RNA: Fluoride riboswitch aptamer (crcB RNA motif)
Organism: Desulfovibrio sp. X2
Nucleotides: 060
Stems, first nucleotide, its partner, number of pairs: 010025004016051006033041002
Number, partner (000 for none) and nucleotide at each position: 001000g002000g003000c004000c005000g006000c007000c008000a009000c010025g011024g012023g013022g014000a015000u016051g017050g018049a019048g020047u021046c022013c023012c024011c025010c026000g027000a028000g029000a030000a031000c032000c033041g034040c035000a036000c037000c038000a039000u040034g041033c042000u043000g044000a045000u046021g047020a048019c049018u050017c051016c052000u053000g054000c055000c056000g057000g058000a059000c060000g